[Rfam]
RNA sequence: CCACCCGAAGUGGCUCGUAGGCCAGCCCGACCAGAGACAGGUGGCGGGGUAGAGCACUUAUUGGGUGUUUAGGGGGAGAAAUCCCUCGGCAUCCUGUAAAACUCCGAACCCGUCACCGUCGUAGAUGGUCGGAGUCAGGGGCGCGGGGUAAGCUUGUGUCCCGAGAGAGGAACAACUCAGACUGGGGUUAAGGUCCCUAAAUGCCGGCUAAGUCAAAGGUGGUCUUUGGCCCUAGACAAUGGGAAGGUGGGCUUAGAAGCAGCCAUCCUUUAAAGAGUGCGUAACAGCUCACCCAUCGAGGUCAAAGGCGCCGAAAAUGGAAGGGGAUCAAGCCGGCUACCGAUACCCCAGAGCACCACGAAAUCGUGGUGAUCUUGUAGGGUGGCGUCCUGUCAGGGUAGAAGCAGGGGCGUGAGCUCCUGUGGACCUGGCAGGAAUGAGGAU
Numbered sequence: 001c002c003a004c005c006c007g008a009a010g011u012g013g014c015u016c017g018u019a020g021g022c023c024a025g026c027c028c029g030a031c032c033a034g035a036g037a038c039a040g041g042u043g044g045c046g047g048g049g050u051a052g053a054g055c056a057c058u059u060a061u062u063g064g065g066u067g068u069u070u071a072g073g074g075g076g077a078g079a080a081a082u083c084c085c086u087c088g089g090c091a092u093c094c095u096g097u098a099a100a101a102c103u104c105c106g107a108a109c110c111c112g113u114c115a116c117c118g119u120c121g122u123a124g125a126u127g128g129u130c131g132g133a134g135u136c137a138g139g140g141g142c143g144c145g146g147g148g149u150a151a152g153c154u155u156g157u158g159u160c161c162c163g164a165g166a167g168a169g170g171a172a173c174a175a176c177u178c179a180g181a182c183u184g185g186g187g188u189u190a191a192g193g194u195c196c197c198u199a200a201a202u203g204c205c206g207g208c209u210a211a212g213u214c215a216a217a218g219g220u221g222g223u224c225u226u227u228g229g230c231c232c233u234a235g236a237c238a239a240u241g242g243g244a245a246g247g248u249g250g251g252c253u254u255a256g257a258a259g260c261a262g263c264c265a266u267c268c269u270u271u272a273a274a275g276a277g278u279g280c281g282u283a284a285c286a287g288c289u290c291a292c293c294c295a296u297c298g299a300g301g302u303c304a305a306a307g308g309c310g311c312c313g314a315a316a317a318u319g320g321a322a323g324g325g326g327a328u329c330a331a332g333c334c335g336g337c338u339a340c341c342g343a344u345a346c347c348c349c350a351g352a353g354c355a356c357c358a359c360g361a362a363a364u365c366g367u368g369g370u371g372a373u374c375u376u377g378u379a380g381g382g383u384g385g386c387g388u389c390c391u392g393u394c395a396g397g398g399u400a401g402a403a404g405c406a407g408g409g410g411c412g413u414g415a416g417c418u419c420c421u422g423u424g425g426a427c428c429u430g431g432c433a434g435g436a437a438u439g440a441g442g443a444u
Stems, first nucleotide, its partner, number of pairs: 001385006011024005026134001027132006036120003040117008052105001053103002059098003063094006072087006138162009167178003182351007192341003201338001203337006218312003222309010239296005245269003250264003270274001275290001279288002352375002354371005386439001388436010404423008
About this RNA:
This 444-nucleotide part of an RNA from Methanothermobacter tenebrarum belongs to the Rfam family "Archaeal large subunit ribosomal RNA".